[Rfam]
RNA sequence: CAGCAUAUAUGUAGACCUCGCCUGGCUGUCUUUAUGGUCAGCCGAGGGGGACUGUGUAUGCAGGAGUGGCGUGGAGUUCCUGCCAGCUCUGACCAGUUGAGUCAGUGGCUGGGUGAAUCGCAGGGCUCCAGCGUUC
Number, nucleotide and partner (000 for none) at each position: 001c000002a000003g061004c060005a059006u058007a057008u056009a000010u000011g000012u000013a000014g000015a000016c047017c046018u045019c044020g043021c000022c041023u040024g039025g000026c000027u000028g000029u000030c000031u000032u000033u000034a000035u000036g000037g000038u000039c024040a023041g022042c000043c020044g019045a018046g017047g016048g000049g000050g000051a000052c000053u000054g000055u000056g008057u007058a006059u005060g004061c003062a000063g000064g000065a000066g000067u000068g000069g000070c000071g000072u000073g129074g128075a127076g126077u000078u125079c000080c000081u122082g121083c120084c000085a000086g000087c000088u000089c000090u000091g000092a000093c112094c111095a110096g109097u108098u000099g000100a000101g000102u000103c000104a000105g000106u000107g000108g097109c096110u095111g094112g093113g000114u000115g000116a000117a000118u000119c000120g083121c082122a081123g000124g000125g078126c076127u075128c074129c073130a000131g000132c000133g000134u000135u000136c000
About this RNA:
Shown here is a 136-nucleotide RNA from Chinchilla lanigera, a member of the family "Small nucleolar RNA SNORA58". The match comes from Rfam's covariance-model search (113 bits). Pairs were carried over by alignment from the consensus structure, which was predicted with PFOLD. The literature on the family includes a 2001 paper in EMBO J by Huttenhofer et al., "RNomics: an experimental approach that identifies 201 candidates for novel, small, non-messenger RNAs in mouse". Its family is annotated with RNA processing and nucleolus in the Gene Ontology. ACA52 is a member of the H/ACA class of snoRNA that guide the sites of modification of uridines to pseudouridines.